[Rfam]
FMN riboswitch aptamer (RFN element): a 145-nucleotide RNA from Agromyces rhizosphaerae. Taxonomically the source falls in Agromyces (Bacteria, Actinomycetes, Micrococcales, Microbacteriaceae). It scores 86 bits against the family's covariance model. Rfam links the family to the GO term FMN binding.
Nucleotides: 145
Stems, first nucleotide, its partner, number of pairs: 003143007010134001017029003031123002033112002035049004044110002053087002092108005114126003
Number, partner (000 for none) and nucleotide at each position: 001000a002000a003143a004142c005141g006140u007139g008138c009137u010134c011000c012000g013000g014000g015000g016000u017029c018028g019027g020000u021000g022000a023000a024000a025000g026000u027019c028018c029017g030000a031123g032122c033112c034111g035049g036048c037047g038046g039000u040000g041000a042000c043000a044110g045109u046038c047037c048036g049035c050000g051000a052000a053087c054086c055000g056000a057000g058000c059000g060000c061000u062000c063000g064000a065000u066000c067000u068000c069000c070000a071000u072000u073000g074000g075000g076000u077000c078000g079000g080000g081000c082000g083000c084000g085000a086054g087053g088000c089000c090000g091000a092108a093107c094106c095105g096104g097000u098000g099000g100000a101000a102000u103000u104096c105095c106094g107093g108092u109045a110044c111034c112033g113000a114126c115125g116124g117000u118000g119000a120000a121000a122032g123031u124116c125115c126114g127000g128000a129000u130000g131000g132000g133000a134010g135000g136000c137009a138008g139007c140006a141005c142004g143003u144000g145000c